Rfam assigns this 77-nucleotide RNA from Manduca sexta to the family "mir-745 microRNA precursor family". Gene Ontology terms of the family: miRNA-mediated post-transcriptional gene silencing and RISC complex.
RNA sequence: UUGUCGGUUGCGGCUCAUCGUAUGGCAGUUUGCUGUGUAGUAAUGCCAGCUGCCUAGCGAAGGGCAACAAAUGACUG
Number, nucleotide and partner (000 for none) at each position: 001u000002u000003g075004u074005c073006g072007g000008u070009u069010g068011c000012g000013g065014c064015u063016c062017a000018u060019c059020g058021u057022a000023u000024g054025g053026c052027a051028g000029u000030u000031u000032g050033c049034u048035g000036u000037g000038u000039a000040g000041u000042a000043a000044u000045g000046c000047c000048a034049g033050c032051u027052g026053c025054c024055u000056a000057g021058c020059g019060a018061a000062g016063g015064g014065c013066a000067a000068c010069a009070a008071a000072u006073g005074a004075c003076u000077g000